[Rfam]
The family of this 102-nucleotide RNA from Bacillus mesophilum is "Purine riboswitch aptamer".
Rfam describes the family as follows. Riboswitches are metabolite binding domains within certain messenger RNAs that serve as precision sensors for their corresponding targets. Allosteric rearrangement of mRNA structure is mediated by ligand binding, and this results in modulation of gene expression. A class of riboswitches that selectively recognises guanine and becomes saturated at concentrations as low as 5 nM. In Bacillus subtilis, this mRNA motif is located on at least five separate transcriptional units that together encode 17 genes that are mostly involved in purine transport and purine nucleotide biosynthesis.
NCBI's taxonomy places the organism under Bacteria, Bacillati, Bacilli, Bacillaceae, Bacillus.
RNA sequence: AAAUUAAAUAUAGCAACCCUUCAUAUAUCCUCGAUAAUAUGGUUCGAAAGUCUCUACCGGAUCGCCGUAAAUGAUCUGACUAUGAAGGCAGUAAUUCUCUUU
Numbered sequence: 001a002a003a004u005u006a007a008a009u010a011u012a013g014c015a016a017c018c019c020u021u022c023a024u025a026u027a028u029c030c031u032c033g034a035u036a037a038u039a040u041g042g043u044u045c046g047a048a049a050g051u052c053u054c055u056a057c058c059g060g061a062u063c064g065c066c067g068u069a070a071a072u073g074a075u076c077u078g079a080c081u082a083u084g085a086a087g088g089c090a091g092u093a094a095u096u097c098u099c100u101u102u
Stems, first nucleotide, its partner, number of pairs: 018088008031047004058078007
Dot-bracket structure: .................((((((((.....((((.........))))..........(((((((.......)))))))..))))))))..............